ASpks TB sRNA: a 75-nucleotide RNA from Streptomyces naganishii. NCBI's taxonomy places the organism under Bacteria, Bacillati, Actinomycetota, Actinomycetes, Streptomyces naganishii. The literature on the family includes a 2009 paper in Mol Microbiol by Arnvig and Young, "Identification of small RNAs in Mycobacterium tuberculosis". It is annotated as an antisense RNA.
RNA sequence: CUUGACCGAUCCGAGCCACAGCGGCCGGUCCUCGUGCCGGCCCUUGCCGUAGGUGGCGAGCAGGGCCUGCGCCUC
Dot-bracket structure: ..............(((.....))).....(.(....(....(((.(((....))).)))....)...).)....